[Rfam]
RNA sequence: GCGAUGAGCUAAGCUGCAUAAGACGGACAGGCAUUCCUUUAUGGAACACGUUGUGGAGCGUGGCCUGAUACGCCGCAGCUAUCGAUACAUCCCGCAUUUAUGCGGGGUGU
Numbered sequence: 001g002c003g004a005u006g007a008g009c010u011a012a013g014c015u016g017c018a019u020a021a022g023a024c025g026g027a028c029a030g031g032c033a034u035u036c037c038u039u040u041a042u043g044g045a046a047c048a049c050g051u052u053g054u055g056g057a058g059c060g061u062g063g064c065c066u067g068a069u070a071c072g073c074c075g076c077a078g079c080u081a082u083c084g085a086u087a088c089a090u091c092c093c094g095c096a097u098u099u100a101u102g103c104g105g106g107g108u109g110u
Stems, first nucleotide, its partner, number of pairs: 014078004024072002027069001029066004035044002047062002050059003087110009

A member of the RNA family "BsrF" from Planococcus rifietoensis, 110 nucleotides long.
It is annotated as a small RNA.
A reference for the family is Saito et al. (2008), "Novel small RNA-encoding genes in the intergenic regions of Bacillus subtilis", Gene.